Description: Shown here is a 77-nucleotide sequence from Clostridium puniceum, a member of the family "ZMP/ZTP riboswitch aptamer (pfl RNA motif)". Rfam links the family to the GO terms regulation of purine nucleotide biosynthetic process and one-carbon metabolic process. A search with the family's covariance model found it, with a score of 60 bits.

Nucleotides: 077
Base pairs, nucleotide, nucleotide: 003051004050005049006048007047008046009045010044011043012042015039017065018064019063020062021061024036025035026034027033056070057069058068
Number, partner (000 for none) and nucleotide at each position: 001000u002000a003051u004050u005049g006048g007047u008046c009045a010044u011043a012042u013000g014000a015039c016000u017065g018064a019063c020062g021061g022000a023000a024036g025035u026034g027033g028000a029000u030000u031000a032000a033027c034026c035025a036024c037000a038000u039015g040000a041000a042012g043011u044010a045009u046008g047007a048006c049005u050004a051003a052000a053000a054000a055000a056070g057069c058068c059000g060000a061021c062020c063019g064018u065017c066000u067000g068058g069057g070056c071000a072000a073000a074000a075000a076000g077000c
Lineage of the source: Bacteria > Bacillota > Clostridia > Clostridiaceae > Clostridium.